[Rfam]
RNA sequence: UCCCCUCGCCGCGCCGGGGCAAUGGUGCGGCACCCUCCCUGUUGGACUGGGCCGGGGCCUGCGUGCCCCGGCCAUUUUC
Numbered sequence: 001u002c003c004c005c006u007c008g009c010c011g012c013g014c015c016g017g018g019g020c021a022a023u024g025g026u027g028c029g030g031c032a033c034c035c036u037c038c039c040u041g042u043u044g045g046a047c048u049g050g051g052c053c054g055g056g057g058c059c060u061g062c063g064u065g066c067c068c069c070g071g072c073c074a075u076u077u078u079c
Stems, first nucleotide, its partner, number of pairs: 008031007050073008
This 79-nucleotide sequence from Rhodovulum sp. 12E13 belongs to the Rfam family "Singlet oxygen resistance RNA X". It is annotated as a small RNA. A search with the family's covariance model found it, with a score of 53 bits. NCBI's taxonomy places the organism under Bacteria, Pseudomonadati, Pseudomonadota, Paracoccaceae, Rhodovulum.